[Rfam]
RNA sequence: AAACAGGGCUUCUGCGGUGCGUGACACGGGGGCCCCUGUGGAAUUGAUAUCAAGAGAUUUCAGAAGCACAAUUUUUGUGUGUGGGGGUCGCUGGUAACCGCCAAUUCCGGCGCCCCA
Number, nucleotide and partner (000 for none) at each position: 001a000002a000003a000004c000005a000006g000007g000008g067009c066010u065011u064012c063013u026014g025015c000016g000017g022018u000019g000020c000021g000022u017023g000024a000025c014026a013027c038028g037029g036030g035031g000032g000033c000034c000035c030036c029037u028038g027039u062040g061041g060042a059043a058044u057045u056046g000047a000048u000049a000050u000051c000052a000053a000054g000055a000056g045057a044058u043059u042060u041061c040062a039063g012064a011065a010066g009067c008068a000069c000070a000071a000072u000073u000074u000075u000076u000077g000078u000079g000080u000081g000082u000083g000084g000085g115086g114087g113088u112089c000090g111091c110092u109093g108094g107095u000096a106097a105098c000099c000100g000101c000102c000103a000104a000105u097106u096107c094108c093109g092110g091111c090112g088113c087114c086115c085116c000117a000

U11 spliceosomal RNA: a 117-nucleotide sequence from Otus sunia. Rfam classes the family as a spliceosomal small nuclear RNA. The organism belongs to Otus, within Eukaryota.